[Rfam]
A member of the RNA family "ZMP/ZTP riboswitch aptamer (pfl RNA motif)" from Streptomyces montanisoli, 88 nucleotides long. Gene Ontology terms of the family: one-carbon metabolic process and regulation of purine nucleotide biosynthetic process. Lineage of the source: Bacteria > Actinomycetota > Actinomycetes > Streptomycetaceae > Streptomyces. Pairs were carried over by alignment from the consensus structure, which is taken from published work.
RNA sequence: GUGCCGGGCCGUGACUGGCGCUGAGGUGGGUCACCACCGGGGAGCGGCCCGGCACCCGCUGCCACUGCCGUGCGCCUGGGCGACUUCC
Numbered sequence: 001g002u003g004c005c006g007g008g009c010c011g012u013g014a015c016u017g018g019c020g021c022u023g024a025g026g027u028g029g030g031u032c033a034c035c036a037c038c039g040g041g042g043a044g045c046g047g048c049c050c051g052g053c054a055c056c057c058g059c060u061g062c063c064a065c066u067g068c069c070g071u072g073c074g075c076c077u078g079g080g081c082g083a084c085u086u087c088c
Stems, first nucleotide, its partner, number of pairs: 003053010015041002017076005026037004066082004